[Rfam]
Nucleotides: 557
Base pairs, nucleotide, nucleotide: 009025010024011023012022013021027547028546029545030544032543033542034541035540036539037538039399040398041397042396043395044394045392046391047357052355053354054353056352057351058350061099062098063097066096067095070092073090074089075088076087077086078085079084106310107309108308115235116234117233118232119231120230121229122228125227126226130223131222132221133220134219135218136217138172139171140170141169146163148161149160150159151158152157178203179202180201181200183198184197185196186195187194208215209214236282237281238280243273244272245271248270249269250268251267252266253265254264255263285307286306287305288304289300290299291298292297312333313332314331315330316329335346336345337344338343363389365388366387367386371384372383373382374381375380402433403432404431405430413423414422415421439483440482441481442480443479447474453468454467455466491536492535493534494533495532502531503530504529505528506527512519513518
Number, partner (000 for none) and nucleotide at each position: 001000a002000c003000g004000a005000u006000g007000a008000a009025g010024a011023g012022u013021u014000u015000g016000a017000u018000c019000c020000u021013g022012g023011c024010u025009c026000a027547g028546g029545a030544u031000g032543a033542a034541c035540g036539c037538u038000a039399g040398c041397g042396g043395c044394a045392g046391g047357c048000c049000u050000a051000a052355c053354a054353c055000a056352u057351g058350c059000a060000a061099g062098u063097c064000g065000a066096g067095g068000g069000g070092u071000a072000a073090a074089g075088a076087a077086g078085u079084g080000c081000u082000u083000g084079c085078a086077c087076u088075u089074u090073u091000g092070a093000g094000a095067c096066c097063g098062g099061c100000g101000c102000a103000c104000g105000g106310g107309u108308g109000a110000g111000u112000a113000a114000c115235g116234c117233g118232u119231a120230u121229g122228g123000a124000a125227u126226c127000u128000g129000c130223c131222u132221u133220g134219u135218a136217c137000a138172g139171g140170g141169g142000a143000a144000u145000a146163g147000c148161c149160c150159a151158g152157g153000g154000a155000a156000a157152c158151u159150u160149g161148g162000a163146u164000u165000a166000a167000u168000g169141c170140c171139c172138c173000a174000u175000g176000g177000u178203a179202u180201c181200a182000u183198a184197g185196u186195c187194c188000g189000g190000c191000a192000u193000u194187g195186g196185a197184u198183u199000u200181u201180g202179a203178u204000u205000a206000a207000a208215g209214a210000u211000u212000u213000a214209u215208c216000g217136g218135u219134a220133c221132a222131a223130g224000a225000u226126g227125a228122u229121c230120a231119u232118g233117c234116g235115u236282c237281c238280c239000a240000u241000u242000a243273g244272c245271u246000u247000g248270a249269u250268g251267g252266u253265a254264a255263g256000g257000u258000a259000a260000c261000g262000g263255c264254u265253u266252a267251c268250c269249a270248u271245g272244g273243c274000u275000a276000c277000g278000a279000u280238g281237g282236g283000u284000a285307g286306g287305g288304g289300c290299c291298c292297u293000g294000a295000g296000a297292g298291g299290g300289g301000g302000a303000u304288c305287c306286c307285c308108c309107a310106c311000a312333c313332u314331g315330g316329u317000a318000c319000u320000g321000a322000g323000a324000c325000a326000c327000g328000g329316a330315c331314c332313a333312g334000a335346c336345u337344c338343c339000u340000a341000c342000g343338g344337g345336a346335g347000g348000c349000a350058g351057c352056a353054g354053u355052g356000a357047g358000g359000a360000a361000u362000a363389u364000u365388g366387g367386a368000c369000a370000a371384u372383g373382g374381g375380c376000g377000a378000g379000a380375g381374c382373c383372u384371g385000a386367u387366c388365c389363a390000g391046c392045c393000a394044u395043g396042c397041c398040g399039c400000g401000u402433g403432c404431a405430g406000g407000a408000a409000g410000a411000c412000c413423g414422c415421c416000c417000u418000a419000u420000g421415g422414g423413u424000c425000g426000u427000a428000a429000a430405c431404u432403g433402c434000u435000u436000u437000u438000a439483c440482a441481g442480a443479g444000g445000a446000a447474g448000a449000a450000a451000c452000a453468c454467c455466c456000c457000g458000a459000c460000g461000u462000g463000u464000c465000g466455g467454g468453g469000c470000u471000u472000g473000a474447c475000g476000g477000u478000a479443c480442u481441c482440u483439g484000g485000g486000a487000a488000u489000a490000a491536g492535g493534a494533u495532c496000g497000g498000c499000u500000a501000a502531c503530u504529c505528c506527g507000u508000g509000c510000c511000a512519g513518c514000a515000g516000c517000c518513g519512c520000g521000g522000u523000a524000a525000u526000a527506c528505g529504g530503a531502g532495g533494a534493u535492c536491c537000g538037a539036g540035c541034g542033u543032u544030a545029u546028c547027c548000g549000g550000a551000a552000u553000c554000a555000u556000u557000g
This 557-nucleotide part of an RNA from Aequorivita ciconiae belongs to the Rfam family "Bacterial small subunit ribosomal RNA". The family's consensus secondary structure is taken from published work.